[Rfam]
A member of the RNA family "Manganese Mn2+ riboswitch aptamer (yybP-ykoY)" from Bordetella genomosp. 4, 179 nucleotides long.
RNA sequence: CCGGUUCUCUCUGGGGAGUAGCUUCCUUUCAGGAUUAUCUGAAAGAGGCUUGCGUCAACACUCUUGGCCCAACCGUGGCCAUGGCGCAAGCGGCCCUUGCGGCUUGGCGAGACCAUAGAUCCUUCACAUCCUGCCGGGCGUGUGAUUGGUCUAUGUUGUCCAUGCCCGGCUGAUCAGGU
Numbered sequence: 001c002c003g004g005u006u007c008u009c010u011c012u013g014g015g016g017a018g019u020a021g022c023u024u025c026c027u028u029u030c031a032g033g034a035u036u037a038u039c040u041g042a043a044a045g046a047g048g049c050u051u052g053c054g055u056c057a058a059c060a061c062u063c064u065u066g067g068c069c070c071a072a073c074c075g076u077g078g079c080c081a082u083g084g085c086g087c088a089a090g091c092g093g094c095c096c097u098u099g100c101g102g103c104u105u106g107g108c109g110a111g112a113c114c115a116u117a118g119a120u121c122c123u124u125c126a127c128a129u130c131c132u133g134c135c136g137g138g139c140g141u142g143u144g145a146u147u148g149g150u151c152u153a154u155g156u157u158g159u160c161c162a163u164g165c166c167c168g169g170c171u172g173a174u175c176a177g178g179u
Base pairs, nucleotide, nucleotide: 026045027044048091049090050089051088052087053086054085055084056083057082065081066080067079068078069077095178096177097176
Gene Ontology term of the family: manganese ion binding.